[Rfam]
Nucleotides: 154
Base pairs, nucleotide, nucleotide: 012138013137014136018050019049020048051134052133053132054131055130056129061068069119070118071117077095079093080092098113099112100111101110
Number, partner (000 for none) and nucleotide at each position: 001000a002000g003000a004000g005000u006000g007000a008000g009000u010000c011000a012138g013137c014136c015000u016000a017000a018050u019049u020048c021000c022000a023000a024000a025000a026000u027000a028000u029000c030000a031000a032000u033000u034000a035000a036000u037000u038000u039000g040000a041000u042000g043000a044000a045000a046000c047000g048020g049019a050018a051134a052133c053132g054131g055130g056129g057000g058000a059000a060000c061068c062000a063000a064000u065000u066000u067000a068061g069119g070118g071117g072000c073000g074000u075000a076000u077095c078000a079093u080092u081000a082000c083000u084000u085000u086000a087000a088000c089000a090000g091000u092080a093079a094000a095077g096000a097000a098113g099112g100111a101110c102000a103000u104000c105000u106000c107000u108000c109000a110101g111100u112099c113098c114000u115000a116000g117071c118070c119069c120000g121000u122000c123000a124000g125000c126000u127000a128000a129056c130055u131054u132053c133052g134051u135000a136014g137013g138012c139000a140000u141000u142000g143000a144000g145000a146000g147000g148000a149000g150000a151000c152000u153000a154000a

A member of the RNA family "c-di-AMP riboswitch aptamer (ydaO/yuaA leader)" from Geminocystis sp. NIES-3708, 154 nucleotides long. This family represents a conserved RNA structure found upstream of the ydaO and yuaA genes in Bacillus subtilis and related genes in other bacteria. It scores 75 bits against the family's covariance model. Rfam links the family to the GO terms regulation of gene expression and cyclic-di-AMP binding.